[Rfam]
RNA sequence: GCUACUGGCGAGUAUUCUUGGGUAAAUAUCACUUUAAAGCUGUUAUUGCUUGAGAAUACACGUAAAUAUU
Numbered sequence: 001g002c003u004a005c006u007g008g009c010g011a012g013u014a015u016u017c018u019u020g021g022g023u024a025a026a027u028a029u030c031a032c033u034u035u036a037a038a039g040c041u042g043u044u045a046u047u048g049c050u051u052g053a054g055a056a057u058a059c060a061c062g063u064a065a066a067u068a069u070u
Stems, first nucleotide, its partner, number of pairs: 001070001003068002008063003012059012025047004030042002032039002
This 70-nucleotide sequence from Magallana gigas belongs to the Rfam family "mir-137 microRNA precursor family". The literature on the family includes a 2005 paper in Genes Dev by Chen et al., "The developmental miRNA profiles of zebrafish as determined by small RNA cloning". NCBI's taxonomy places the organism under Eukaryota, Eumetazoa, Lophotrochozoa, Ostreidae, Magallana. The base pairs follow the family's consensus structure, which was predicted with RNAalifold.